[Rfam]
RNA sequence: UCUGAAAUACGGGAGUACAGAGAAUCCGUCACAUCAGA
Numbered sequence: 001u002c003u004g005a006a007a008u009a010c011g012g013g014a015g016u017a018c019a020g021a022g023a024a025u026c027c028g029u030c031a032c033a034u035c036a037g038a
Base pairs, nucleotide, nucleotide: 001038002037003036004035005034008031009029010028011027012026
Record summary:
A member of the RNA family "MAT2A 3'UTR stem loop D" from Oryzias sinensis, 38 nucleotides long. NCBI's taxonomy places the organism under Eukaryota, Metazoa, Deuterostomia, Teleostomi, Oryzias. It is annotated as a cis-regulatory element. The base pairs follow the family's consensus structure, which is taken from published work. A search with the family's covariance model found it, with a score of 33 bits.